Record summary
A member of the RNA family "narK RNA" from Zestomonas carbonaria, 72 nucleotides long. The family's RNA type in Rfam is cis-regulatory element. NCBI's taxonomy places the organism under Bacteria, Pseudomonadati, Pseudomonadota, Gammaproteobacteria, Zestomonas.
[Rfam]
Nucleotides: 072
Stems, first nucleotide, its partner, number of pairs: 030049007
Number, partner (000 for none) and nucleotide at each position: 001000g002000g003000c004000u005000c006000a007000g008000g009000u010000c011000u012000u013000g014000c015000u016000a017000a018000u019000c020000c021000a022000c023000u024000g025000u026000c027000a028000c029000g030049g031048g032047u033046a034045g035044c036043c037000a038000a039000u040000g041000g042000c043036g044035g045034u046033u047032g048031c049030c050000u051000c052000c053000a054000c055000g056000c057000a058000c059000g060000a061000c062000a063000a064000a065000g066000a067000c068000g069000u070000c071000g072000c